[Rfam]
RNA sequence: CGAGUGGUUUAGGUAGUUUCAUGUUGUUGGGAUCCAUUUUAUAACUCUGCAACACGAAACUGUCUUAAUUGCCCC
Numbered sequence: 001c002g003a004g005u006g007g008u009u010u011a012g013g014u015a016g017u018u019u020c021a022u023g024u025u026g027u028u029g030g031g032a033u034c035c036a037u038u039u040u041a042u043a044a045c046u047c048u049g050c051a052a053c054a055c056g057a058a059a060c061u062g063u064c065u066u067a068a069u070u071g072c073c074c075c
Stems, first nucleotide, its partner, number of pairs: 004072006011065009022054006029047003
RNA: mir-196 microRNA precursor family